Group II catalytic intron D1-D4-4: a 143-nucleotide RNA sequence from Paenibacillus paeoniae. It scores 58 bits against the family's covariance model. The source organism's lineage runs through Bacteria, Bacillati, Bacilli, Caryophanales and Paenibacillus. About the family: Group II introns are found in rRNA, tRNA and mRNA of organelles in fungi, plants and protists, and also in mRNA in bacteria. Rfam links the family to the GO term Group II intron splicing. The base pairs follow the family's consensus structure. On this family, see Bonen and Vogel, Trends Genet 2001: "The ins and outs of group II introns".
RNA sequence: UAGCCGCUGUAAGUCCGGUCUCAGGAAGGGCCAAGUCCCCGCGUAGCUUAGAUAUUUGCGUAUGGAGAAAUCGGUGCGUAAAAGCGUAUCGAUAAAAGGACCUGUCAGAGAUAAGGCGAGCACACUGCCAGGCCUUAAGAUCA
Numbered sequence: 001u002a003g004c005c006g007c008u009g010u011a012a013g014u015c016c017g018g019u020c021u022c023a024g025g026a027a028g029g030g031c032c033a034a035g036u037c038c039c040c041g042c043g044u045a046g047c048u049u050a051g052a053u054a055u056u057u058g059c060g061u062a063u064g065g066a067g068a069a070a071u072c073g074g075u076g077c078g079u080a081a082a083a084g085c086g087u088a089u090c091g092a093u094a095a096a097a098g099g100a101c102c103u104g105u106c107a108g109a110g111a112u113a114a115g116g117c118g119a120g121c122a123c124a125c126u127g128c129c130a131g132g133c134c135u136u137a138a139g140a141u142c143a
Stems, first nucleotide, its partner, number of pairs: 020043001022041001024039001051090005056081006065072002098117001101115001103113003120136001